[Rfam]
RNA sequence: CGGCGAUUGGACACUUUGACCCCCGGGUGCGGGCAGCAGCGGUCACCAGGUUCCGGGGCGAGUGAAUGGUGAGACCGGCCAAUCUGCCG
Dot-bracket structure: ((((((((((.(((......(((((((.............[[[[[[[....)))))))...)))...]]]]]..]]..)))))).))))

This 89-nucleotide RNA sequence belongs to the Rfam family "c-di-GMP-II-GAG riboswitch aptamer". On this family, see Weinberg et al., Proc Natl Acad Sci U S A 2017: "Bioinformatic analysis of riboswitch structures uncovers variant classes with altered ligand specificity".